[Rfam]
The record is a 338-nucleotide RNA from Erwinia tasmaniensis, which matches "RNase E 5' UTR element" in Rfam. About the family: This family represents a conserved element found in the 5' UTR of RNase E mRNA. RNase E is a key regulatory enzyme in the pathway of mRNA degradation in E. coli that is able to auto-regulate the degradation of its own mRNA in response to changes in RNase E activity. This rne 5' UTR element acts as a sensor of cellular RNase E concentration enabling tight regulation of RNase E concentration and synthesis. Rfam classes the family as a cis-regulatory element. Rfam links the family to the GO term regulation of gene expression. The organism belongs to Erwinia, within Bacteria.
RNA sequence: AGACUUUCGUCGAGCUGCAAAACGGCAGACGAAAACGACAGGGUGUAAUAAGAAAUUUUGCCGGAUAGCCCAUACACGCAGCAAUGGCGUAAGACGUAUUGUGCAAUCAGGCAUUUAGCGGGCUGCGGGUUGCAGCCUGGACGAUAAAGCGGGAUUGGUUCAGCGGUAGGUUACUGGCGGUCCCCCUCCAAAGCGCUGUUUUUCCAUAUGUAAAACAGGCUACCGAGUAUUUGCACCCCUUGAGCUGGCGACAACCGGGAGGUUGACGGCUUGCGAUGAGACACGGGGUCAUCGGUUUUUCACGUCCAGCGUUACUUUGCCCGUAGCUUUGUCAAUAA
Numbered sequence: 001a002g003a004c005u006u007u008c009g010u011c012g013a014g015c016u017g018c019a020a021a022a023c024g025g026c027a028g029a030c031g032a033a034a035a036c037g038a039c040a041g042g043g044u045g046u047a048a049u050a051a052g053a054a055a056u057u058u059u060g061c062c063g064g065a066u067a068g069c070c071c072a073u074a075c076a077c078g079c080a081g082c083a084a085u086g087g088c089g090u091a092a093g094a095c096g097u098a099u100u101g102u103g104c105a106a107u108c109a110g111g112c113a114u115u116u117a118g119c120g121g122g123c124u125g126c127g128g129g130u131u132g133c134a135g136c137c138u139g140g141a142c143g144a145u146a147a148a149g150c151g152g153g154a155u156u157g158g159u160u161c162a163g164c165g166g167u168a169g170g171u172u173a174c175u176g177g178c179g180g181u182c183c184c185c186c187u188c189c190a191a192a193g194c195g196c197u198g199u200u201u202u203u204c205c206a207u208a209u210g211u212a213a214a215a216c217a218g219g220c221u222a223c224c225g226a227g228u229a230u231u232u233g234c235a236c237c238c239c240u241u242g243a244g245c246u247g248g249c250g251a252c253a254a255c256c257g258g259g260a261g262g263u264u265g266a267c268g269g270c271u272u273g274c275g276a277u278g279a280g281a282c283a284c285g286g287g288g289u290c291a292u293c294g295g296u297u298u299u300u301c302a303c304g305u306c307c308a309g310c311g312u313u314a315c316u317u318u319g320c321c322c323g324u325a326g327c328u329u330u331g332u333c334a335a336u337a338a
Stems, first nucleotide, its partner, number of pairs: 005034004014026004059113004064108002069103001071101002076097003081088002120329011138308006151184005160177004192221003196218004201213002204210001222296005235289005249268002252265005